[Rfam]
RNA sequence: CGUCCUCUCUUGGGGGAGUAAUCUGCCGCUACCUUAUUCGCGGUGUUUGCAUCAACAUAAUUGAGCCUCAUGCUCAUGGUGUAGACGUUCUGUAAAAGAAUUGAUGAGACCUAAGACAAAUACUCGAUUUCAGGGCGACAUCGAGCUGUUUGUCUUUGGUUUAAAGUCGCCCGAGGUAUC
Numbered sequence: 001c002g003u004c005c006u007c008u009c010u011u012g013g014g015g016g017a018g019u020a021a022u023c024u025g026c027c028g029c030u031a032c033c034u035u036a037u038u039c040g041c042g043g044u045g046u047u048u049g050c051a052u053c054a055a056c057a058u059a060a061u062u063g064a065g066c067c068u069c070a071u072g073c074u075c076a077u078g079g080u081g082u083a084g085a086c087g088u089u090c091u092g093u094a095a096a097a098g099a100a101u102u103g104a105u106g107a108g109a110c111c112u113a114a115g116a117c118a119a120a121u122a123c124u125c126g127a128u129u130u131c132a133g134g135g136c137g138a139c140a141u142c143g144a145g146c147u148g149u150u151u152g153u154c155u156u157u158g159g160u161u162u163a164a165a166g167u168c169g170c171c172c173g174a175g176g177u178a179u180c
Stems, first nucleotide, its partner, number of pairs: 026043003045086010062076005087179002090176002093173001
Dot-bracket structure: .........................(((............))).((((((((((.......(((((.....)))))))))))))))((.((.(...............................................................................).)).)).
Background: Rfam assigns this 180-nucleotide RNA sequence from Thalassolituus oleivorans to the family "Manganese Mn2+ riboswitch aptamer (yybP-ykoY)". The source organism's lineage runs through Bacteria, Pseudomonadati, Pseudomonadota, Gammaproteobacteria and Thalassolituus oleivorans. Rfam describes the family as follows. This RNA was originally discovered in E. coli during a large scale screen and was named SraF. The family was later found to exist upstream of related families of protein genes in many bacteria, including the the yybP and ykoK genes in B. subtilis. The specific functions of these proteins are unknown, but this structured RNA element may be involved in their genetic regulation as a riboswitch. The base pairs follow the family's consensus structure.